Shown here is a 68-nucleotide RNA sequence from Pelusios castaneus, a member of the family "Small nucleolar RNA SNORD82". From the family's description: snoRNA U82 or Z25 is found in both humans and mice. NCBI's taxonomy places the organism under Eukaryota, Sarcopterygii, Dipnotetrapodomorpha, Archelosauria, Pelusios. It scores 72 bits against the family's covariance model.
[Rfam]
RNA sequence: AGCACAAAUGAUGAGUAUUAGGGACUUAAUACUGAAGUCUGAUGUGACUCUUAUAUAAACUGAUGUGC
Numbered sequence: 001a002g003c004a005c006a007a008a009u010g011a012u013g014a015g016u017a018u019u020a021g022g023g024a025c026u027u028a029a030u031a032c033u034g035a036a037g038u039c040u041g042a043u044g045u046g047a048c049u050c051u052u053a054u055a056u057a058a059a060c061u062g063a064u065g066u067g068c
Stems, first nucleotide, its partner, number of pairs: 002068005